[Rfam]
RNA: ASpks TB sRNA
Organism: Nonomuraea muscovyensis
RNA sequence: CUUGACCGACCCCAGCCACAGCGGCGCCUCACGGUCCUGGCCAUAGGUGGCCAGCAACGCCUGCGCCUC
Numbered sequence: 001c002u003u004g005a006c007c008g009a010c011c012c013c014a015g016c017c018a019c020a021g022c023g024g025c026g027c028c029u030c031a032c033g034g035u036c037c038u039g040g041c042c043a044u045a046g047g048u049g050g051c052c053a054g055c056a057a058c059g060c061c062u063g064c065g066c067c068u069c
Stems, first nucleotide, its partner, number of pairs: 015025003028065001030063001032059002037054003041050003